Rfam assigns this 125-nucleotide RNA sequence from Halopolyspora algeriensis to the family "Glycine riboswitch aptamer". Lineage of the source: Bacteria > Bacillati > Actinomycetota > Actinomycetes > Halopolyspora. Its family is annotated with glycine biosynthetic process in the Gene Ontology.
[Rfam]
RNA sequence: CGAAGUCGGGCGGGAGAGCCCCUGUCGAGAUGGAAGAGGUCAACGGCGACUUCUCCGGGUGAGCAGGGCGCCGAAGGAGCAAGACUCCCCGCAAACUCUCAGGCACCCAUGACCGCUCGACCGAG
Numbered sequence: 001c002g003a004a005g006u007c008g009g010g011c012g013g014g015a016g017a018g019c020c021c022c023u024g025u026c027g028a029g030a031u032g033g034a035a036g037a038g039g040u041c042a043a044c045g046g047c048g049a050c051u052u053c054u055c056c057g058g059g060u061g062a063g064c065a066g067g068g069c070g071c072c073g074a075a076g077g078a079g080c081a082a083g084a085c086u087c088c089c090c091g092c093a094a095a096c097u098c099u100c101a102g103g104c105a106c107c108c109a110u111g112a113c114c115g116c117u118c119g120a121c122c123g124a125g
Stems, first nucleotide, its partner, number of pairs: 006120008020068006070104003073100002077098003083092001